[Rfam]
The family of this 98-nucleotide sequence from Sphaerochaeta halotolerans is "NiCo (Nickel/Cobalt) riboswitch aptamer".
Pairs were carried over by alignment from the consensus structure, which is taken from published work.
NCBI's taxonomy places the organism under Bacteria, Pseudomonadati, Spirochaetia, Sphaerochaetaceae, Sphaerochaeta.
The match comes from Rfam's covariance-model search (79 bits).
On this family, see Furukawa et al., Mol Cell 2015: "Bacterial riboswitches cooperatively bind Ni(2+) or Co(2+) ions and control expression of heavy metal transporters".

RNA sequence: ACAGUACAAACUGAGCAGGCGAUGCCCGGAAGCGGGCGUGGGGCCGGGCCGUUUAACAACGGCAGCAAAUUGCUAAUAAGCACAUUUGUGGGACAGUU
Numbered sequence: 001a002c003a004g005u006a007c008a009a010a011c012u013g014a015g016c017a018g019g020c021g022a023u024g025c026c027c028g029g030a031a032g033c034g035g036g037c038g039u040g041g042g043g044c045c046g047g048g049c050c051g052u053u054u055a056a057c058a059a060c061g062g063c064a065g066c067a068a069a070u071u072g073c074u075a076a077u078a079a080g081c082a083c084a085u086u087u088g089u090g091g092g093a094c095a096g097u098u
Base pairs, nucleotide, nucleotide: 010097011096012095013094016092018045019044020043022039023038024037025036026035027034048063049062050061051060052059065089066088067087068086069085070084